[Rfam]
RNA sequence: AUUACCCAUCGUGAUGUGGUUAUUGCAUUCAAUAUGUAAUUGAUUGCAAAGGGCAAUACUUUAUUGCCCUUUUUUAUUU
Number, nucleotide and partner (000 for none) at each position: 001a000002u000003u000004a000005c000006c000007c000008a000009u000010c000011g000012u000013g000014a000015u000016g000017u000018g000019g000020u000021u000022a000023u000024u000025g047026c046027a045028u000029u043030c042031a041032a040033u000034a000035u000036g000037u000038a000039a000040u032041u031042g030043a029044u000045u027046g026047c025048a000049a071050a070051g069052g068053g067054c066055a065056a064057u063058a062059c000060u000061u000062u058063a057064u056065u055066g054067c053068c052069c051070u050071u049072u000073u000074u000075u000076a000077u000078u000079u000

ABC transporter regulator: a 79-nucleotide sequence from Klebsiella aerogenes. NCBI's taxonomy places the organism under Bacteria, Pseudomonadota, Gammaproteobacteria, Enterobacterales, Klebsiella aerogenes. The family's RNA type in Rfam is cis-regulatory element. It is one of the family's seed sequences.